[Rfam]
RNA sequence: GAAGUAAAAAAUGGCAAUAUGGAGGCAUAGCAGGGCAACAAACACAGCUAUGCCAACAUCUUGCCAUCUUUUGUCUUC
Numbered sequence: 001g002a003a004g005u006a007a008a009a010a011a012u013g014g015c016a017a018u019a020u021g022g023a024g025g026c027a028u029a030g031c032a033g034g035g036c037a038a039c040a041a042a043c044a045c046a047g048c049u050a051u052g053c054c055a056a057c058a059u060c061u062u063g064c065c066a067u068c069u070u071u072u073g074u075c076u077u078c
Stems, first nucleotide, its partner, number of pairs: 005073005011067007019059003024054008
The record is a 78-nucleotide RNA sequence from Bagarius yarrelli, which matches "mir-31 microRNA precursor family" in Rfam. NCBI's taxonomy places the organism under Eukaryota, Metazoa, Craniata, Ostariophysi, Bagarius. Rfam 15.1 lists 1,181 matches to the family in 783 species. Its family is annotated with gene silencing by miRNA and RISC complex in the Gene Ontology. Clan: mir-31 microRNA precursor family. For this family Rfam cites "The small RNA profile during Drosophila melanogaster development" (Aravin et al., Dev Cell, 2003).